[Rfam]
RNA sequence: GGGCCGGGCCGUGACUGGCGCUUGGGUGGAGUACCACCGGGAAGCGGCCCGGCAGGCCGCCGCUGCGGUCGUGCCGAUUGCCGCGCGCCUGGGCGACGAAC
Dot-bracket structure: ..((((((((((..(([[[[[....((((....))))..))..))))))))))........................(((((..]]]]]..))))).....
RNA: ZMP/ZTP riboswitch aptamer (pfl RNA motif)
Organism: Streptomyces sp. CC53